[Rfam]
Rfam assigns this 47-nucleotide sequence from Methanococcus maripaludis to the family "flpD RNA". Rfam's curators put it in the seed alignment.

RNA sequence: UCAUGUGACGAACAACCCGAAGGCUAAGGCCAGGGGAGUUCUGAUGA
Numbered sequence: 001u002c003a004u005g006u007g008a009c010g011a012a013c014a015a016c017c018c019g020a021a022g023g024c025u026a027a028g029g030c031c032a033g034g035g036g037a038g039u040u041c042u043g044a045u046g047a
Stems, first nucleotide, its partner, number of pairs: 001047004010041004016035003022031003
NCBI's taxonomy places the organism under Archaea, Methanococci, Methanococcales, Methanococcaceae, Methanococcus.